mir-2060 microRNA precursor family: an 84-nucleotide sequence from Branchiostoma floridae.
Its family is annotated with RISC complex and miRNA-mediated post-transcriptional gene silencing in the Gene Ontology.
Rfam 15.1 lists 3,696 matches to the family in 4 species.

[Rfam]
RNA sequence: GUGUGUGUGUGGAUGGUGUUCAGCACCAGGGACAGGUUUGUGUGUGUGGAUGGUGUUCAGCACCAGGGACAGGUUUGUGUGUGU
Numbered sequence: 001g002u003g004u005g006u007g008u009g010u011g012g013a014u015g016g017u018g019u020u021c022a023g024c025a026c027c028a029g030g031g032a033c034a035g036g037u038u039u040g041u042g043u044g045u046g047u048g049g050a051u052g053g054u055g056u057u058c059a060g061c062a063c064c065a066g067g068g069a070c071a072g073g074u075u076u077g078u079g080u081g082u083g084u
Stems, first nucleotide, its partner, number of pairs: 001074002004071003014065007022057007030045001032043003